RNA sequence: AGUUGAUAAUGCCACAGUCGUCGUGAGGCGGUGUCGGAAAGCUGCGGGUCUCUUUAAAGAGAGAUAGCCGGGUUACCUUC
Numbered sequence: 001a002g003u004u005g006a007u008a009a010u011g012c013c014a015c016a017g018u019c020g021u022c023g024u025g026a027g028g029c030g031g032u033g034u035c036g037g038a039a040a041g042c043u044g045c046g047g048g049u050c051u052c053u054u055u056a057a058a059g060a061g062a063g064a065u066a067g068c069c070g071g072g073u074u075a076c077c078u079u080c
Stems, first nucleotide, its partner, number of pairs: 012037002017032006040074004045070003048065007
Dot-bracket structure: ...........((...((((((....))))))...))..((((.((((((((((....)))))))..)))))))......
The family of this 80-nucleotide RNA from Candidatus Electrothrix aarhusensis is "c-di-GMP-I riboswitch aptamer". The base pairs follow the family's consensus structure, which is taken from published work. It scores 56 bits against the family's covariance model. Rfam's curators write: GEMM was predicted in a large-scale screen for bacterial structured RNA regulatory elements. Genes associated with GEMM are involved in a diverse array of functions, including chemotaxis regulation, signal transduction, secretion and chitin.